[Rfam]
A member of the RNA family "MIR812 microRNA precursor family" from Oryza rufipogon, 209 nucleotides long.
RNA sequence: AAUAAGUGCAGUUUUGCACUAUUCAUGUUCAACGUUUGACCGUCCGUCUUAUUUGAAAAUUUUUUAUGAUUAUUAUUUUUAUUGCUAUUAGAUGAUAAAACAUGAAUAGUACUUUAUGUGUGACUAAAUGUUUUUAAUUUUUUCACAAAUUUUUCAAAUAAGACGGACAGUCAAACGUUGAACGUGAAUAGUGCAAAACUGCACUUAUU
Numbered sequence: 001a002a003u004a005a006g007u008g009c010a011g012u013u014u015u016g017c018a019c020u021a022u023u024c025a026u027g028u029u030c031a032a033c034g035u036u037u038g039a040c041c042g043u044c045c046g047u048c049u050u051a052u053u054u055g056a057a058a059a060u061u062u063u064u065u066a067u068g069a070u071u072a073u074u075a076u077u078u079u080u081a082u083u084g085c086u087a088u089u090a091g092a093u094g095a096u097a098a099a100a101c102a103u104g105a106a107u108a109g110u111a112c113u114u115u116a117u118g119u120g121u122g123a124c125u126a127a128a129u130g131u132u133u134u135u136a137a138u139u140u141u142u143u144c145a146c147a148a149a150u151u152u153u154u155c156a157a158a159u160a161a162g163a164c165g166g167a168c169a170g171u172c173a174a175a176c177g178u179u180g181a182a183c184g185u186g187a188a189u190a191g192u193g194c195a196a197a198a199c200u201g202c203a204c205u206u207a208u209u
Stems, first nucleotide, its partner, number of pairs: 028182006035175006042168011

Lineage of the source: Eukaryota > Streptophyta > Tracheophyta > Poaceae > Oryza. The family's consensus secondary structure was predicted with RNAalifold.